This 147-nucleotide sequence from Cuscuta europaea belongs to the Rfam family "mir-166 microRNA precursor family".
RNA sequence: AUUGAGGGGAAUGUUGUUUGGCUCGAGGUCACCAGCUAGAUCCAUAUACCCAAAUCUUUUUUCACUUUAAAAUCAGUUUUGGCUGGUAAAAUAUGGGUCAUAUGCCAUCUUUUUGGUGACGUCGGACCAGGCUUCAUUCCCCCCAAU
Numbered sequence: 001a002u003u004g005a006g007g008g009g010a011a012u013g014u015u016g017u018u019u020g021g022c023u024c025g026a027g028g029u030c031a032c033c034a035g036c037u038a039g040a041u042c043c044a045u046a047u048a049c050c051c052a053a054a055u056c057u058u059u060u061u062u063c064a065c066u067u068u069a070a071a072a073u074c075a076g077u078u079u080u081g082g083c084u085g086g087u088a089a090a091a092u093a094u095g096g097g098u099c100a101u102a103u104g105c106c107a108u109c110u111u112u113u114u115g116g117u118g119a120c121g122u123c124g125g126a127c128c129a130g131g132c133u134u135c136a137u138u139c140c141c142c143c144c145a146a147u
Stems, first nucleotide, its partner, number of pairs: 001147004006142008016132006024124003

A reference for the family is Reinhart et al. (2002), "MicroRNAs in plants", Genes Dev.
Rfam's curators write: This family represents the plant microRNA (miRNA) precursor mir-166.